RNA: Small nucleolar RNA Z43
Organism: Apium graveolens
RNA sequence: AGACAAUGACGAUUAGUGAUUGGUCUCGUUCGUCGUAACGGCAGAUUAGACCCUGCCUUGCCGACCAUUCUGAUAUAUCACCACCCAUAAACUGAGUCU
Numbered sequence: 001a002g003a004c005a006a007u008g009a010c011g012a013u014u015a016g017u018g019a020u021u022g023g024u025c026u027c028g029u030u031c032g033u034c035g036u037a038a039c040g041g042c043a044g045a046u047u048a049g050a051c052c053c054u055g056c057c058u059u060g061c062c063g064a065c066c067a068u069u070c071u072g073a074u075a076u077a078u079c080a081c082c083a084c085c086c087a088u089a090a091a092c093u094g095a096g097u098c099u
Stems, first nucleotide, its partner, number of pairs: 001099004043059002045054001
Dot-bracket structure: ((((......................................(((........)...))....................................))))